[Rfam]
RNA sequence: UAUGAAACAGGGCAAAGUCGUUGAAAAACGGCGGCGCAAAGCUUUGGGUCUAACGUUUAGGUUAAUAUCCCUAAACUAUGAUCGCCAGGCUGCCAUU
Numbered sequence: 001u002a003u004g005a006a007a008c009a010g011g012g013c014a015a016a017g018u019c020g021u022u023g024a025a026a027a028a029c030g031g032c033g034g035c036g037c038a039a040a041g042c043u044u045u046g047g048g049u050c051u052a053a054c055g056u057u058u059a060g061g062u063u064a065a066u067a068u069c070c071c072u073a074a075a076c077u078a079u080g081a082u083c084g085c086c087a088g089g090c091u092g093c094c095a096u097u
Stems, first nucleotide, its partner, number of pairs: 012037002017032006040091004045087003048082003055076007
About this RNA: Rfam assigns this 97-nucleotide RNA from Acetivibrio clariflavus to the family "c-di-GMP-I riboswitch aptamer". A search with the family's covariance model found it, with a score of 72 bits.